Description
This 156-nucleotide sequence from Populus tomentosa belongs to the Rfam family "MIR2912 microRNA precursor family". The family's consensus secondary structure was predicted with RNAalifold. The match comes from Rfam's covariance-model search (116 bits).

RNA sequence: UCUAGAACUCGAGAUAUGAGUUGAACACUGAACAGUGUCUAGGCUGUAGGAUAAAUUCGGACUUCUCCGUUAUUGCUUUAAUUUGGACUUGAAAAUAGCCUUUUUAAAUCUUGGACUCCACAUGAAAGUUUUAGGCAUAUGUCUUAUCUUUUCAUC
Numbered sequence: 001u002c003u004a005g006a007a008c009u010c011g012a013g014a015u016a017u018g019a020g021u022u023g024a025a026c027a028c029u030g031a032a033c034a035g036u037g038u039c040u041a042g043g044c045u046g047u048a049g050g051a052u053a054a055a056u057u058c059g060g061a062c063u064u065c066u067c068c069g070u071u072a073u074u075g076c077u078u079u080a081a082u083u084u085g086g087a088c089u090u091g092a093a094a095a096u097a098g099c100c101u102u103u104u105u106a107a108a109u110c111u112u113g114g115a116c117u118c119c120a121c122a123u124g125a126a127a128g129u130u131u132u133a134g135g136c137a138u139a140u141g142u143c144u145u146a147u148c149u150u151u152u153c154a155u156c
Base pairs, nucleotide, nucleotide: 003154005152006151007150009146011145012144013143014142015141016140017139018138020136021134022133023132024131025130027129028128029127035123036122037121042118043117045115048112049111050110051109052108054105055104059100060099062098063097073087074086